Shown here is a 119-nucleotide RNA sequence from Paenibacillus antri, a member of the family "Bacillus sRNA ncr1015". Lineage of the source: Bacteria > Bacilli > Caryophanales > Paenibacillaceae > Paenibacillus.

RNA sequence: UUGUAAGAUGAAAUAAAUAUGCCUUCGAAGAAUUAGGUAGUCGUAAUCCGAUUAUAUCAUCGUGUCUUUUUAUGCGCAAUAUAUAAAGAACCUGGAACGCUGUCCAGGUUCUUUUUUUG
Number, nucleotide and partner (000 for none) at each position: 001u000002u000003g000004u000005a000006a000007g000008a000009u000010g000011a000012a000013a000014u000015a000016a000017a000018u000019a000020u000021g000022c000023c000024u000025u000026c000027g000028a000029a000030g000031a000032a000033u000034u072035a071036g070037g069038u000039a065040g000041u000042c062043g061044u000045a000046a000047u000048c000049c000050g000051a000052u000053u000054a000055u000056a000057u000058c000059a000060u000061c043062g042063u000064g000065u039066c000067u000068u000069u037070u036071u035072a034073u000074g000075c000076g000077c000078a000079a000080u000081a000082u000083a000084u000085a114086a113087a112088g111089a110090a109091c108092c107093u106094g105095g104096a000097a000098c000099g000100c000101u000102g000103u000104c095105c094106a093107g092108g091109u090110u089111c088112u087113u086114u085115u000116u000117u000118u000119g000
Pairs were carried over by alignment from the consensus structure, which is taken from published work.